[Rfam]
RNA sequence: GUUCCCAGUGAUGCUACUAUGCUAAUGCUAAUAACAUAUGAUUAUUACCUUCAUUAAAUUGAGGGAACA
Numbered sequence: 001g002u003u004c005c006c007a008g009u010g011a012u013g014c015u016a017c018u019a020u021g022c023u024a025a026u027g028c029u030a031a032u033a034a035c036a037u038a039u040g041a042u043u044a045u046u047a048c049c050u051u052c053a054u055u056a057a058a059u060u061g062a063g064g065g066a067a068c069a
Base pairs, nucleotide, nucleotide: 001068002067003066004065005064
Shown here is a 69-nucleotide RNA from Glycine max, a member of the family "Small nucleolar RNA snoR53Y". For this family Rfam cites "Multiple snoRNA gene clusters from Arabidopsis" (Brown et al., RNA, 2001). Rfam links the family to the GO terms nucleolus and RNA processing.